[Rfam]
RNA sequence: CUCUGGAGAGAAUCCUGAUACAUAUAGGAUCACCAAAGGGGAAACUCACACGCGCUUCAUAUCUUGCUUACAUAAUUUGUGUAGAGGUAACUCUCAGGUACAAAGGACAGAG
Number, nucleotide and partner (000 for none) at each position: 001c112002u111003c110004u109005g108006g000007a000008g000009a000010g000011a000012a030013u029014c028015c027016u026017g025018a000019u000020a000021c000022a000023u000024a000025u017026a016027g015028g014029a013030u012031c000032a099033c098034c097035a000036a094037a000038g000039g093040g092041g091042a000043a000044a000045c086046u085047c000048a000049c000050a000051c000052g000053c000054g000055c000056u000057u000058c000059a000060u000061a000062u000063c000064u000065u000066g000067c000068u000069u000070a000071c000072a000073u000074a000075a000076u000077u000078u000079g000080u000081g000082u000083a000084g000085a046086g045087g000088u000089a000090a000091c041092u040093c039094u036095c000096a000097g034098g033099u032100a000101c000102a000103a000104a000105g000106g000107a000108c005109a004110g003111a002112g001

Shown here is a 112-nucleotide sequence from Paenibacillus uliginis, a member of the family "Glycine riboswitch aptamer". Rfam's curators write: This family represents the bacterial glycine riboswitch.